[Rfam]
RNA sequence: CUAUGACCAAGUCCAAGUCACACCUCCACGCGGUAUCAACUGGAAACUCUUUACUCAGUAAAGUGGCCAACGUGACAGGG
Numbered sequence: 001c002u003a004u005g006a007c008c009a010a011g012u013c014c015a016a017g018u019c020a021c022a023c024c025u026c027c028a029c030g031c032g033g034u035a036u037c038a039a040c041u042g043g044a045a046a047c048u049c050u051u052u053a054c055u056c057a058g059u060a061a062a063g064u065g066g067c068c069a070a071c072g073u074g075a076c077a078g079g080g
Stems, first nucleotide, its partner, number of pairs: 013080002017076005022034003047065001049063006
RNA: drz-agam-1 ribozyme